This 126-nucleotide RNA from Molossus molossus belongs to the Rfam family "Small nucleolar RNA SNORA28". NCBI's taxonomy places the organism under Eukaryota, Tetrapoda, Mammalia, Eutheria, Molossus. ACA28 is a member of the H/ACA class of snoRNA that guide the sites of modification of uridines to pseudouridines. A search with the family's covariance model found it, with a score of 121 bits. The family is grouped with related families in Rfam's "SNORA28 clan".
RNA sequence: AAGCAACACUCUGUGGCAGAUAAUCAAAACUGUCUGACACAAUCUGAGCUUGCUAUAGCAACAAAGUCUAACCUAUUGCAAUGCUCUCUCUUCCAUGAGGCAAGCCGUUAUAUAGACUUAGUGUAA
Numbered sequence: 001a002a003g004c005a006a007c008a009c010u011c012u013g014u015g016g017c018a019g020a021u022a023a024u025c026a027a028a029a030c031u032g033u034c035u036g037a038c039a040c041a042a043u044c045u046g047a048g049c050u051u052g053c054u055a056u057a058g059c060a061a062c063a064a065a066g067u068c069u070a071a072c073c074u075a076u077u078g079c080a081a082u083g084c085u086c087u088c089u090c091u092u093c094c095a096u097g098a099g100g101c102a103a104g105c106c107g108u109u110a111u112a113u114a115g116a117c118u119u120a121g122u123g124u125a126a
Stems, first nucleotide, its partner, number of pairs: 009048003012041004017036006064119007074112003079107001082104001087100004